[Rfam]
RNA sequence: AAGCGAGGACGACCUCCCCAUUUCGGACAAUAUUUCGGGACGACCCGA
Numbered sequence: 001a002a003g004c005g006a007g008g009a010c011g012a013c014c015u016c017c018c019c020a021u022u023u024c025g026g027a028c029a030a031u032a033u034u035u036c037g038g039g040a041c042g043a044c045c046c047g048a
Base pairs, nucleotide, nucleotide: 003018005016006015007014008013035048036047037046038045039044
Dot-bracket structure: ..(.((((....)))).)................(((((....)))))
Shown here is a 48-nucleotide RNA sequence from Alphaproteobacteria bacterium HT1-32, a member of the family "Guanidine-II riboswitch aptamer (mini-ykkC)".